A member of the RNA family "Y RNA" from Propithecus coquereli, 112 nucleotides long. Rfam describes the family as follows. Y RNAs are components of the Ro ribonucleoprotein particle (Ro RNP), in association with Ro60 and La proteins. The match comes from Rfam's covariance-model search (51 bits). Lineage of the source: Eukaryota > Bilateria > Vertebrata > Euteleostomi > Propithecus. By type it is a non-coding RNA gene.
[Rfam]
RNA sequence: GGUUGGUCCAAAGGUAGUGAGUUAUCUCAAAUGAUUGUUCACAAUCAGUUACAGGUGAACUCUUUGUUCUACUCUUUCCCCCCUUCUAACUACUGCACUCAACUAGUUUUAA
Dot-bracket structure: (((((((...(..(((((.((......................(..((....................))..)............)).)))...))..)..)))))))....
Numbered sequence: 001g002g003u004u005g006g007u008c009c010a011a012a013g014g015u016a017g018u019g020a021g022u023u024a025u026c027u028c029a030a031a032u033g034a035u036u037g038u039u040c041a042c043a044a045u046c047a048g049u050u051a052c053a054g055g056u057g058a059a060c061u062c063u064u065u066g067u068u069c070u071a072c073u074c075u076u077u078c079c080c081c082c083c084u085u086c087u088a089a090c091u092a093c094u095g096c097a098c099u100c101a102a103c104u105a106g107u108u109u110u111a112a
Stems, first nucleotide, its partner, number of pairs: 001108007011099001014096002016091003020087002044073001047070002